[Rfam]
RNA sequence: AAGCAGGUUAAGUUACAAUAUAGUGGUGCAGUGCUAUGUUGUCGUUCCCCCUGCUAAAAAUAACUUGUUUCCUACUAUCCCUGACUGUUGUCUUUCCAGCAGGCAGGGACGCUUGGUCUCAAACAC
Numbered sequence: 001a002a003g004c005a006g007g008u009u010a011a012g013u014u015a016c017a018a019u020a021u022a023g024u025g026g027u028g029c030a031g032u033g034c035u036a037u038g039u040u041g042u043c044g045u046u047c048c049c050c051c052u053g054c055u056a057a058a059a060a061u062a063a064c065u066u067g068u069u070u071c072c073u074a075c076u077a078u079c080c081c082u083g084a085c086u087g088u089u090g091u092c093u094u095u096c097c098a099g100c101a102g103g104c105a106g107g108g109a110c111g112c113u114u115g116g117u118c119u120c121a122a123a124c125a126c
Stems, first nucleotide, its partner, number of pairs: 003054005015042010080107004085102004
This 126-nucleotide RNA sequence from Leptobrachium leishanense belongs to the Rfam family "Small nucleolar RNA SNORA63". Rfam's curators write: E3 belongs to the H/ACA class of snoRNAs and is involved in the processing of eukaryotic pre-rRNA and has regions of complementarity to 18S rRNA. E3 is encoded in introns in the gene for protein synthesis initiation factor 4AII. The family's RNA type in Rfam is H/ACA-box small nucleolar RNA. Rfam links the family to the GO terms nucleolus and RNA processing.